[Rfam]
RNA sequence: UUACUGUGUACCUUGGCACUUGAAGAAUUCACAGAUUAAUAUUGAAAUCGUGGGUCUUCUGGUGCCAAAGUUUACGGUUU
Numbered sequence: 001u002u003a004c005u006g007u008g009u010a011c012c013u014u015g016g017c018a019c020u021u022g023a024a025g026a027a028u029u030c031a032c033a034g035a036u037u038a039a040u041a042u043u044g045a046a047a048u049c050g051u052g053g054g055u056c057u058u059c060u061g062g063u064g065c066c067a068a069a070g071u072u073u074a075c076g077g078u079u080u
Stems, first nucleotide, its partner, number of pairs: 003078006010071001013068006020061001022059001023057001025056002029053004034048001
The family of this 80-nucleotide RNA from Laodelphax striatellus is "mir-263 microRNA precursor family". A search with the family's covariance model found it, with a score of 59 bits. On this family, see Li et al., BMC Genomics 2009: "Direct sequencing and expression analysis of a large number of miRNAs in Aedes aegypti and a multi-species survey of novel mosquito miRNAs". The base pairs follow the family's consensus structure, which was predicted with RNAalifold.